Nucleotides: 137
Base pairs, nucleotide, nucleotide: 003059004058005057006056007055008054010053013050014049016043017042018041020039022037024034025033026032061076063074065072066071083122084121085120086115087114088113090110091109092108094106095105096104
Number, partner (000 for none) and nucleotide at each position: 001000g002000u003059g004058c005057a006056c007055a008054g009000u010053g011000a012000a013050c014049a015000c016043c017042c018041a019000a020039g021000g022037a023000u024034g025033c026032c027000a028000a029000u030000g031000u032026g033025g034024c035000u036000c037022u038000c039020c040000c041018u042017g043016g044000a045000c046000u047000u048000u049014u050013g051000u052000a053010u054008c055007u056006g057005u058004g059003c060000u061076a062000c063074a064000g065072u066071a067000a068000a069000u070000c071066u072065g073000a074063u075000c076061u077000g078000u079000a080000c081000c082000u083122c084121u085120g086115c087114a088113u089000u090110a091109a092108g093000a094106g095105a096104g097000c098000c099000c100000a101000g102000u103000c104096c105095u106094c107000c108092c109091u110090u111000a112000c113088a114087u115086g116000u117000a118000u119000u120085c121084a122083g123000c124000g125000g126000a127000u128000c129000a130000g131000a132000a133000c134000a135000a136000a137000c
Rfam assigns this 137-nucleotide RNA from Scophthalmus maximus to the family "Small nucleolar RNA SNORA22". The organism belongs to Scophthalmus, within Eukaryota. Pairs were carried over by alignment from the consensus structure, which was predicted with RNAfold. Rfam's curators write: ACA22 is a member of the H/ACA class of snoRNA that guide the sites of modification of uridines to pseudouridines.